[Rfam]
RNA sequence: AGCCUAAAACGUCCGUAGCCGGUUUUCUAAAUCCUUGGGUAAAUCGGGCAGCUUAACUGUCCGAAUUCCGGGGAGACUGGGAGACUUGGGACCGGGAGAGGUCAGAGGUACUUCUGGGGUAGGGGUAAAAUCCUGUAAUCCUGGAAGGACCACCGGUGGCGAAGGCGUCUGACUAGAACGGAUCCGACGGUGAGGGACGAAGCCCUGGGGCGCAAACGGGAUUAGAUACCCCGGUAGUCCAGGGUGUAAACGCUGCGGGCUUGGUGUUGGGGGUCCUUAGUGGGCGCCCAGUGCCGGAGAGAAGUUGUUAAGCCUGCUGCUUGGGGAGUAUGUCCGCAAGGAUGAAACUUAAAGGAAU
Numbered sequence: 001a002g003c004c005u006a007a008a009a010c011g012u013c014c015g016u017a018g019c020c021g022g023u024u025u026u027c028u029a030a031a032u033c034c035u036u037g038g039g040u041a042a043a044u045c046g047g048g049c050a051g052c053u054u055a056a057c058u059g060u061c062c063g064a065a066u067u068c069c070g071g072g073g074a075g076a077c078u079g080g081g082a083g084a085c086u087u088g089g090g091a092c093c094g095g096g097a098g099a100g101g102u103c104a105g106a107g108g109u110a111c112u113u114c115u116g117g118g119g120u121a122g123g124g125g126u127a128a129a130a131u132c133c134u135g136u137a138a139u140c141c142u143g144g145a146a147g148g149a150c151c152a153c154c155g156g157u158g159g160c161g162a163a164g165g166c167g168u169c170u171g172a173c174u175a176g177a178a179c180g181g182a183u184c185c186g187a188c189g190g191u192g193a194g195g196g197a198c199g200a201a202g203c204c205c206u207g208g209g210g211c212g213c214a215a216a217c218g219g220g221a222u223u224a225g226a227u228a229c230c231c232c233g234g235u236a237g238u239c240c241a242g243g244g245u246g247u248a249a250a251c252g253c254u255g256c257g258g259g260c261u262u263g264g265u266g267u268u269g270g271g272g273g274u275c276c277u278u279a280g281u282g283g284g285c286g287c288c289c290a291g292u293g294c295c296g297g298a299g300a301g302a303a304g305u306u307g308u309u310a311a312g313c314c315u316g317c318u319g320c321u322u323g324g325g326g327a328g329u330a331u332g333u334c335c336g337c338a339a340g341g342a343u344g345a346a347a348c349u350u351a352a353a354g355g356a357a358u
Stems, first nucleotide, its partner, number of pairs: 001321003009318001011198004016192001018191003022085007030078001032074008045063007089185003092181003100174007107151002111147008122133003159166002203244006212238002217233004255317006263295009273285004299306002323350003332343004
Archaeal small subunit ribosomal RNA: a 358-nucleotide part of an RNA from Candidatus Methanomassiliicoccus intestinalis. The base pairs follow the family's consensus structure, which is taken from published work. A search with the family's covariance model found it, with a score of 1508 bits.